RNA sequence: GUAUAAUAAUGGCAAACUCAUCGAAAGAUGAGGACGCAAAGCUAUGGGUCUGUCAGCGAAAAUUCGCUUGUGAUCGCCAGGUUGCCUUC
Numbered sequence: 001g002u003a004u005a006a007u008a009a010u011g012g013c014a015a016a017c018u019c020a021u022c023g024a025a026a027g028a029u030g031a032g033g034a035c036g037c038a039a040a041g042c043u044a045u046g047g048g049u050c051u052g053u054c055a056g057c058g059a060a061a062a063u064u065c066g067c068u069u070g071u072g073a074u075c076g077c078c079a080g081g082u083u084g085c086c087u088u089c
Base pairs, nucleotide, nucleotide: 012037013036017032018031019030020029021028022027040083041082042081043080045079046078047077048074049073050072055068056067057066058065
Rfam assigns this 89-nucleotide sequence from Propionispora vibrioides to the family "c-di-GMP-I riboswitch aptamer". Rfam links the family to the GO term cyclic-di-GMP binding. The family's consensus secondary structure is taken from published work. It scores 74 bits against the family's covariance model.